Shown here is a 59-nucleotide sequence from Ornithorhynchus anatinus, a member of the family "Selenocysteine insertion sequence 1".
The incorporation of selenocysteine into a protein sequence is directed by an in-frame UGA codon (usually a stop codon) within the coding region of the mRNA. Selenoprotein mRNAs contain a conserved secondary structure in the 3' UTR that is required for the distinction of UGA stop from UGA selenocysteine. The selenocysteine insertion sequence (SECIS) is around 60 nt in length and adopts a hairpin structure which is sufficiently well-defined and conserved to act as a computational screen for selenoprotein genes.
It is annotated as a cis-regulatory element.
Pairs were carried over by alignment from the consensus structure, which is taken from published work.
RNA sequence: UUCACAGAAUGACGGUGUCUCCUUAAACCCUAACCGGGAGGCACCCGAGAGCCGGUGAA
Numbered sequence: 001u002u003c004a005c006a007g008a009a010u011g012a013c014g015g016u017g018u019c020u021c022c023u024u025a026a027a028c029c030c031u032a033a034c035c036g037g038g039a040g041g042c043a044c045c046c047g048a049g050a051g052c053c054g055g056u057g058a059a
Stems, first nucleotide, its partner, number of pairs: 001059005014045010

The organism belongs to Ornithorhynchus, within Eukaryota.
The family has 61 seed sequences and 3,793 matches in Rfam 15.1.